RNA sequence: ACAUGGUCGGGGCCAGAGCAGGCGGUCCCGGCAUCCGAAAGACAUACACCGUGCCACGGAAUGCGUGCGCACAUAUGGGCGUU
Numbered sequence: 001a002c003a004u005g006g007u008c009g010g011g012g013c014c015a016g017a018g019c020a021g022g023c024g025g026u027c028c029c030g031g032c033a034u035c036c037g038a039a040a041g042a043c044a045u046a047c048a049c050c051g052u053g054c055c056a057c058g059g060a061a062u063g064c065g066u067g068c069g070c071a072c073a074u075a076u077g078g079g080c081g082u083u
Base pairs, nucleotide, nucleotide: 004037005036006032007031008030009029010028011027012026013025014024051072052071053070054069056066057065
About this RNA:
The family of this 83-nucleotide RNA sequence from Streptomyces gilvosporeus is "nrdJ RNA". The source organism's lineage runs through Bacteria, Actinomycetota, Kitasatosporales, Streptomycetaceae and Streptomyces.